Rfam assigns this 122-nucleotide RNA sequence from Haemophilus influenzae to the family "Histidine operon leader".
RNA sequence: CCAUCAUCACCAUUCAACUGAAUAAUCUUUCAGGUUUUUGGUGUGCUUGGAAGAUUUCUUCCGAGCUGACAGGAUAAUAAAAAUCUUACCCCUCGGAAGGCAACUUUCGAGGGGUUUUGUUU
Numbered sequence: 001c002c003a004u005c006a007u008c009a010c011c012a013u014u015c016a017a018c019u020g021a022a023u024a025a026u027c028u029u030u031c032a033g034g035u036u037u038u039u040g041g042u043g044u045g046c047u048u049g050g051a052a053g054a055u056u057u058c059u060u061c062c063g064a065g066c067u068g069a070c071a072g073g074a075u076a077a078u079a080a081a082a083a084u085c086u087u088a089c090c091c092c093u094c095g096g097a098a099g100g101c102a103a104c105u106u107u108c109g110a111g112g113g114g115u116u117u118u119g120u121u122u
Stems, first nucleotide, its partner, number of pairs: 008045003011040002018033004046065008084119001088115012
Rfam's curators put it in the seed alignment. Rfam describes the family as follows. At least 6 amino acid operons are known to be regulated by attenuation. In each a leader sequence of 150-200 bp is found upstream of the first gene in the operon. This leader sequence can assume two different secondary structures known as the terminator and the anti-terminator structure. In each case the leader also codes for very short peptide sequence that is rich in the end product amino acid of the operon.